This 89-nucleotide sequence from Callorhinchus milii belongs to the Rfam family "mir-204 microRNA precursor family". The literature on the family includes a 2005 paper in Genes Dev by Chen et al., "The developmental miRNA profiles of zebrafish as determined by small RNA cloning". Gene Ontology terms of the family: RISC complex and miRNA-mediated post-transcriptional gene silencing. The family's consensus secondary structure was predicted with RNAalifold.
RNA sequence: AUGUGGCUUAUGAUCUUCCCUUUGUCAUCCUAUGCCUGAUGGUAAUGAUGGGGGCUGGGACGGUAAAGGGACGUUCAGGUGUCAAUCAC
Numbered sequence: 001a002u003g004u005g006g007c008u009u010a011u012g013a014u015c016u017u018c019c020c021u022u023u024g025u026c027a028u029c030c031u032a033u034g035c036c037u038g039a040u041g042g043u044a045a046u047g048a049u050g051g052g053g054g055c056u057g058g059g060a061c062g063g064u065a066a067a068g069g070g071a072c073g074u075u076c077a078g079g080u081g082u083c084a085a086u087c088a089c
Stems, first nucleotide, its partner, number of pairs: 017071006024064002028060005034055004